[Rfam]
RNA sequence: GUGAAAAAAUUGUGAAAUCUCCAUAUAAUCUUCUAAUAAGGUGAAGAGUCUCUACAAGUCGCCGUAAACGACUUACUAUGGCCAUAUACUUUUGGUUU
Dot-bracket structure: .................(..(((((...(((((.........)))))........((((((.......))))))..)))))..)..............
Numbered sequence: 001g002u003g004a005a006a007a008a009a010u011u012g013u014g015a016a017a018u019c020u021c022c023a024u025a026u027a028a029u030c031u032u033c034u035a036a037u038a039a040g041g042u043g044a045a046g047a048g049u050c051u052c053u054a055c056a057a058g059u060c061g062c063c064g065u066a067a068a069c070g071a072c073u074u075a076c077u078a079u080g081g082c083c084a085u086a087u088a089c090u091u092u093u094g095g096u097u098u
Stems, first nucleotide, its partner, number of pairs: 018084001021081005029047005056074006

The record is a 98-nucleotide RNA sequence from Ilyobacter polytropus, which matches "Purine riboswitch aptamer" in Rfam.
The base pairs follow the family's consensus structure, which is taken from published work.
The match comes from Rfam's covariance-model search (63 bits).
The source organism's lineage runs through Bacteria, Fusobacteriati, Fusobacteriota, Fusobacteriaceae and Ilyobacter polytropus.
Gene Ontology term of the family: purine nucleobase biosynthetic process.